mir-306 microRNA precursor family: an 80-nucleotide RNA from Bombyx mori. The family has 16 seed sequences and 49 matches in Rfam 15.1. A search with the family's covariance model found it, with a score of 61 bits. Rfam links the family to the GO terms RISC complex and miRNA-mediated post-transcriptional gene silencing.
RNA sequence: GCGGGCGGCCGCCUCAGGUACUAGGUGACUCUGAGUGGUGCCGGUCUCAGAGCCGCCUCGUGCCUCAGCGCGGCCUCCGC
Numbered sequence: 001g002c003g004g005g006c007g008g009c010c011g012c013c014u015c016a017g018g019u020a021c022u023a024g025g026u027g028a029c030u031c032u033g034a035g036u037g038g039u040g041c042c043g044g045u046c047u048c049a050g051a052g053c054c055g056c057c058u059c060g061u062g063c064c065u066c067a068g069c070g071c072g073g074c075c076u077c078c079g080c
Stems, first nucleotide, its partner, number of pairs: 001080005007074001009073004016065006024057004029052007
Dot-bracket structure: (((((.(.((((...((((((..((((.(((((((..........))))))).))))..))))))....))))).)))))